[Rfam]
RNA sequence: ACAUCGGCCAUUAUAAUACAACCUGAUAAGUGUUACAGCACUUAUCAGGUUGUAUUGUAAUUGUCUGUGUA
Numbered sequence: 001a002c003a004u005c006g007g008c009c010a011u012u013a014u015a016a017u018a019c020a021a022c023c024u025g026a027u028a029a030g031u032g033u034u035a036c037a038g039c040a041c042u043u044a045u046c047a048g049g050u051u052g053u054a055u056u057g058u059a060a061u062u063g064u065c066u067g068u069g070u071a
Stems, first nucleotide, its partner, number of pairs: 013058009023048003027044007
The record is a 71-nucleotide RNA from Equus caballus, which matches "mir-374 microRNA precursor family" in Rfam. The family has 28 seed sequences and 440 matches in Rfam 15.1. Taxonomically the source falls in Equus (Eukaryota, Tetrapoda, Mammalia, Equidae). A reference for the family is Mineno et al. (2006), "The expression profile of microRNAs in mouse embryos", Nucleic Acids Res. The sequence is in the family's curated seed alignment.